[Rfam]
RNA: mir-31 microRNA precursor family
Organism: Equus caballus
RNA sequence: GGAGAGGAGGCAAGAUGCUGGCAUAGCUGUUGAACUGAGAACCUGCUAUGCCAACAUAUUGCCAUCU
Numbered sequence: 001g002g003a004g005a006g007g008a009g010g011c012a013a014g015a016u017g018c019u020g021g022c023a024u025a026g027c028u029g030u031u032g033a034a035c036u037g038a039g040a041a042c043c044u045g046c047u048a049u050g051c052c053a054a055c056a057u058a059u060u061g062c063c064a065u066c067u
Base pairs, nucleotide, nucleotide: 005067006066007065009063010062011061012060013059015057016056017055019053020052021051022050023049024048025047026046027045